[Rfam]
RNA: c-di-GMP-I riboswitch aptamer
RNA sequence: UUAAUAUAAGGGCAAACCUAUUCGAAAGUUAGGGACGCAAAACCACAGGUCUAAAGUCUGCUAUAGAGACAAUGAUGGCUGGGCUGUCGUA
Dot-bracket structure: ...........((...((((..(....).))))...))..(.((.((((((....((((.......))))...)))..))))).)......
Numbered sequence: 001u002u003a004a005u006a007u008a009a010g011g012g013c014a015a016a017c018c019u020a021u022u023c024g025a026a027a028g029u030u031a032g033g034g035a036c037g038c039a040a041a042a043c044c045a046c047a048g049g050u051c052u053a054a055a056g057u058c059u060g061c062u063a064u065a066g067a068g069a070c071a072a073u074g075a076u077g078g079c080u081g082g083g084c085u086g087u088c089g090u091a
Stems, first nucleotide, its partner, number of pairs: 012038002017033004023028001041085001043083002046081003049076003056070004